About this RNA: This 138-nucleotide RNA from Dipodomys ordii belongs to the Rfam family "U11 spliceosomal RNA". The family's consensus secondary structure is taken from published work. On this family, see Montzka and Steitz, Proc Natl Acad Sci U S A 1988: "Additional low-abundance human small nuclear ribonucleoproteins: U11, U12, etc". The organism belongs to Dipodomys, within Eukaryota.

RNA sequence: AAGGAGAGCUUCUCUUGUGAGUACAUGUAAGGUAGGACAACUUGCAUGUUCUUCAUAUAGAAUCAUCACCAAGAGAUUUCAAAAGCAUAAUUUUUUUGUGUGCUUAAUCAGCUGGUGAUCAUUAGUCUUGGUGCUGAU
Dot-bracket structure: .......((((..(.((......)).)..(.(.((((((.......)))))).).).(.(((((..........))))).).))))....................(.(.(((((.(((.....))))))))).)...
Numbered sequence: 001a002a003g004g005a006g007a008g009c010u011u012c013u014c015u016u017g018u019g020a021g022u023a024c025a026u027g028u029a030a031g032g033u034a035g036g037a038c039a040a041c042u043u044g045c046a047u048g049u050u051c052u053u054c055a056u057a058u059a060g061a062a063u064c065a066u067c068a069c070c071a072a073g074a075g076a077u078u079u080c081a082a083a084a085g086c087a088u089a090a091u092u093u094u095u096u097u098g099u100g101u102g103c104u105u106a107a108u109c110a111g112c113u114g115g116u117g118a119u120c121a122u123u124a125g126u127c128u129u130g131g132u133g134c135u136g137a138u
Stems, first nucleotide, its partner, number of pairs: 008086004014027001016025002030056001032054001034052006058081001060079005107135001109133001111132005117127003